This 51-nucleotide sequence belongs to the Rfam family "Nitrogen stress-induced RNA 1". Rfam 15.1 lists 962 matches to the family in 163 species.

RNA sequence: UGGUAGAUGCACCCUGAAUUCAAUCCCUGGCUUCGGCUGGGGAUUUUUUUG
Numbered sequence: 001u002g003g004u005a006g007a008u009g010c011a012c013c014c015u016g017a018a019u020u021c022a023a024u025c026c027c028u029g030g031c032u033u034c035g036g037c038u039g040g041g042g043a044u045u046u047u048u049u050u051g
Stems, first nucleotide, its partner, number of pairs: 002013003024043008
The pairing is the family consensus, mapped onto this sequence. Rfam classes the family as a small RNA. On this family, see Ionescu et al., J Mol Biol 2010: "Heterocyst-specific transcription of NsiR1, a non-coding RNA encoded in a tandem array of direct repeats in cyanobacteria". The sequence is in the family's curated seed alignment.